[Rfam]
RNA sequence: AGCAAAAUGAUGAGGUUCUAAUAUCGGAAUAUCAGGUAGAAUCCCAUAUCAUAUUGGUCUUCAAAAGUUCUCUGAUUGCU
Numbered sequence: 001a002g003c004a005a006a007a008u009g010a011u012g013a014g015g016u017u018c019u020a021a022u023a024u025c026g027g028a029a030u031a032u033c034a035g036g037u038a039g040a041a042u043c044c045c046a047u048a049u050c051a052u053a054u055u056g057g058u059c060u061u062c063a064a065a066a067g068u069u070c071u072c073u074g075a076u077u078g079c080u
Base pairs, nucleotide, nucleotide: 001080002079003078004077005076
Shown here is an 80-nucleotide RNA from Juglans regia, a member of the family "Small nucleolar RNA R160". The pairing is the family consensus, mapped onto this sequence. Rfam links the family to the GO terms RNA processing and nucleolus. Rfam describes the family as follows. snoR160 is a C/D box small nucleolar RNA, which acts as a methylation guide for 25S ribosomal RNA in plants. snoR160 has been alternatively named snoZ270 in rice. The organism belongs to Juglans, within Eukaryota.